[Rfam]
RNA sequence: UGGCGACUAUGACCAAAAUCAGACCGAUUCUCAUUGAUUUCCAAUAGAAAUAUGAUCCUUAACCAGCUACUACUUACUCUA
Dot-bracket structure: (((.(.......................................................................).)))
The family of this 81-nucleotide sequence from Zizania palustris is "Small nucleolar RNA R12". Lineage of the source: Eukaryota > Viridiplantae > Poaceae > Oryzeae > Zizania. snoR12 is a C/D box small nucleolar RNA, which acts as a methylation guide for 25S ribosomal RNA in plants. snoR12 has been alternatively named snoZ44 in Arabidopsis and snoZ131 in rice. A search with the family's covariance model found it, with a score of 57 bits. The family has 9 seed sequences and 992 matches in Rfam 15.1. It is annotated as a C/D-box small nucleolar RNA.